[Rfam]
RNA sequence: AUGCCUUAAACUUAUGAGUAAGGAAAAUAAUGAUUCGAGAUGAUGCCCGAAUCCCACUGCUAAUGUGAGACUAAUUUUUGAGCGGGUAAAGGUUGCCCUUGAGGUGACCCGCCUACUUUGCCGAUGCCUGGGAGUCAUGAUCUGCCUG
Number, nucleotide and partner (000 for none) at each position: 001a000002u000003g000004c023005c022006u021007u020008a019009a000010a000011c000012u000013u000014a000015u000016g000017a000018g000019u008020a007021a006022g005023g004024a000025a000026a000027a000028u000029a000030a000031u000032g053033a052034u051035u050036c049037g048038a000039g046040a000041u000042g000043a000044u000045g000046c039047c000048c037049g036050a035051a034052u033053c032054c069055c067056a066057c065058u000059g000060c000061u000062a000063a000064u000065g057066u056067g055068a000069g054070a000071c000072u000073a000074a000075u000076u000077u000078u000079u000080g000081a000082g000083c148084g147085g146086g145087u144088a000089a000090a143091g142092g141093u140094u139095g138096c000097c000098c000099u132100u131101g000102a129103g128104g127105u126106g125107a000108c000109c123110c000111g121112c120113c000114u000115a000116c000117u000118u000119u000120g112121c111122c000123g109124a000125u106126g105127c104128c103129u102130g000131g100132g099133a000134g000135u000136c000137a000138u095139g094140a093141u092142c091143u090144g087145c086146c085147u084148g083

The record is a 148-nucleotide RNA sequence from Carlito syrichta, which matches "U12 minor spliceosomal RNA" in Rfam. The match comes from Rfam's covariance-model search (112 bits). The pairing is the family consensus, mapped onto this sequence. By type it is a spliceosomal small nuclear RNA. For this family Rfam cites "Pre-mRNA splicing: the discovery of a new spliceosome doubles the challenge" (Tarn and Steitz, Trends Biochem Sci, 1997).